[Rfam]
RNA sequence: UCGGGCCAACACGGACGCCCGGUCAGACGGGGUCCGUCCAAGUCCGU
Numbered sequence: 001u002c003g004g005g006c007c008a009a010c011a012c013g014g015a016c017g018c019c020c021g022g023u024c025a026g027a028c029g030g031g032g033u034c035c036g037u038c039c040a041a042g043u044c045c046g047u
Stems, first nucleotide, its partner, number of pairs: 001022006011047005026038005

Shown here is a 47-nucleotide RNA sequence from Sphingobium indicum, a member of the family "chrB-b RNA".
The match comes from Rfam's covariance-model search (43 bits).
Pairs were carried over by alignment from the consensus structure, which is taken from published work.
It is annotated as a cis-regulatory element.
NCBI's taxonomy places the organism under Bacteria, Pseudomonadota, Alphaproteobacteria, Sphingobiaceae, Sphingobium indicum.